RNA sequence: AAUGGGAAAUGAUGCCAAAGAUUCAAACAGAGGCGCCAGCUCUGGUGUGAUGAAUUAUUUUUUUUGCACGUCAGUCUGAUCCCAAA
Number, nucleotide and partner (000 for none) at each position: 001a000002a000003u084004g083005g082006g081007a080008a000009a000010u000011g000012a000013u000014g000015c000016c000017a000018a000019a000020g000021a000022u000023u000024c000025a000026a000027a000028c000029a000030g000031a000032g000033g000034c000035g000036c000037c000038a000039g000040c000041u000042c000043u000044g000045g000046u000047g000048u000049g000050a000051u000052g000053a000054a000055u000056u000057a000058u000059u000060u000061u000062u000063u000064u000065u000066g000067c000068a000069c000070g000071u000072c000073a000074g000075u000076c000077u000078g000079a000080u007081c006082c005083c004084a003085a000086a000